[Rfam]
The family of this 102-nucleotide sequence from Saimiri boliviensis is "Y RNA". A search with the family's covariance model found it, with a score of 70 bits. Y RNAs are components of the Ro ribonucleoprotein particle (Ro RNP), in association with Ro60 and La proteins.

Nucleotides: 102
Stems, first nucleotide, its partner, number of pairs: 001098008010090002014086001016081005022076001029064003033060002
Number, partner (000 for none) and nucleotide at each position: 001098g002097g003096c004095u005094g006093g007092u008091c009000c010090a011089a012000g013000u014086g015000c016081a017080g018079u019078g020077g021000u022076g023000u024000u025000u026000a027000c028000a029064a030063g031062u032000a033060a034059u035000c036000g037000a038000u039000c040000a041000c042000a043000a044000c045000c046000a047000g048000u049000u050000a051000c052000a053000g054000a055000u056000u057000c058000u059034g060033u061000u062031g063030c064029u065000u066000c067000u068000u069000c070000c071000c072000c073000a074000c075000u076022c077020c078019c079018a080017c081016u082000g083000c084000u085000u086014c087000a088000c089011u090010u091008g092007a093006c094005u095004g096003g097002c098001c099000a100000a101000a102000a